[Rfam]
A member of the RNA family "Small nucleolar RNA SNORD107" from Rousettus aegyptiacus, 72 nucleotides long.
It scores 82 bits against the family's covariance model.
Pairs were carried over by alignment from the consensus structure, which was predicted with WAR.

RNA sequence: GGUUCAUGAUGACAUGGGACCUUGUCUGAACGUAAUGAUUUCAAAGCUUGAGCUUGACGUGACACUGAAAUC
Dot-bracket structure: ((((................................................................))))
Numbered sequence: 001g002g003u004u005c006a007u008g009a010u011g012a013c014a015u016g017g018g019a020c021c022u023u024g025u026c027u028g029a030a031c032g033u034a035a036u037g038a039u040u041u042c043a044a045a046g047c048u049u050g051a052g053c054u055u056g057a058c059g060u061g062a063c064a065c066u067g068a069a070a071u072c
Stems, first nucleotide, its partner, number of pairs: 001072004
NCBI's taxonomy places the organism under Eukaryota, Deuterostomia, Dipnotetrapodomorpha, Amniota, Rousettus. The literature on the family includes a 2001 paper in Hum Mol Genet by Runte et al., "The IC-SNURF-SNRPN transcript serves as a host for multiple small nucleolar RNA species and as an antisense RNA for UBE3A". Gene Ontology terms of the family: RNA processing and nucleolus.